[Rfam]
Nucleotides: 087
Base pairs, nucleotide, nucleotide: 002086003085004084005083007082008081009080010076011075013034014033015032016031018029036063037062038061039060040059044055045054046053
Number, partner (000 for none) and nucleotide at each position: 001000g002086g003085u004084g005083c006000u007082g008081u009080u010076g011075g012000a013034g014033g015032a016031u017000g018029a019000c020000a021000c022000c023000u024000g025000c026000g027000a028000g029018u030000g031016a032015u033014c034013c035000a036063u037062c038061g039060g040059c041000a042000g043000a044055g045054c046053a047000c048000c049000c050000u051000g052000g053046u054045g055044c056000a057000a058000u059040g060039c061038u062037g063036a064000c065000a066000c067000u068000c069000c070000a071000g072000c073000u074000g075011c076010u077000g078000a079000c080009a081008a082007c083005g084004c085003a086002c087000a
A member of the RNA family "Small nucleolar RNA SNORD71" from Sphenodon punctatus, 87 nucleotides long. Pairs were carried over by alignment from the consensus structure, which was predicted with RNAalifold. Its family is annotated with RNA processing and nucleolus in the Gene Ontology. The literature on the family includes a 2001 paper in EMBO J by Huttenhofer et al., "RNomics: an experimental approach that identifies 201 candidates for novel, small, non-messenger RNAs in mouse". Rfam describes the family as follows. snoRNA HBII-239 belongs to the family of C/D snoRNAs.It is the human orthologue of the mouse MBII-239 described and is predicted to guide 2'O-ribose methylation of 5.8S rRNA on residue U14.